[Rfam]
RNA sequence: GCUGAUGCUGGUGGUGACGCCGAUGGUGCGAGCUGGAAAUGGGGUGCUACGUCAUCGUUGUCAUCAUUAUCAUCAUCACC
Number, nucleotide and partner (000 for none) at each position: 001g077002c000003u075004g074005a073006u072007g071008c000009u069010g068011g067012u066013g065014g064015u063016g062017a061018c000019g000020c000021c060022g059023a058024u057025g056026g055027u054028g053029c051030g050031a048032g047033c046034u000035g000036g000037a000038a000039a000040u000041g000042g000043g000044g000045u000046g033047c032048u031049a000050c030051g029052u000053c028054a027055u026056c025057g024058u023059u022060g021061u017062c016063a015064u014065c013066a012067u011068u010069a009070u000071c007072a006073u005074c004075a003076u000077c001078a000079c000080c000
Rfam assigns this 80-nucleotide RNA sequence from Myotis davidii to the family "mir-598 microRNA precursor family". The family has 9 seed sequences and 92 matches in Rfam 15.1. NCBI's taxonomy places the organism under Eukaryota, Opisthokonta, Eutheria, Vespertilionidae, Myotis.